[Rfam]
RNA sequence: GCCGUUGUUCUGAACUGUCGCAAUCCAAUGCGUGCGUUCCCUUUAAAGGAUAGGAACAACGGUUUUU
Numbered sequence: 001g002c003c004g005u006u007g008u009u010c011u012g013a014a015c016u017g018u019c020g021c022a023a024u025c026c027a028a029u030g031c032g033u034g035c036g037u038u039c040c041c042u043u044u045a046a047a048g049g050a051u052a053g054g055a056a057c058a059a060c061g062g063u064u065u066u067u
Stems, first nucleotide, its partner, number of pairs: 001063011016036003019032004038050003042046001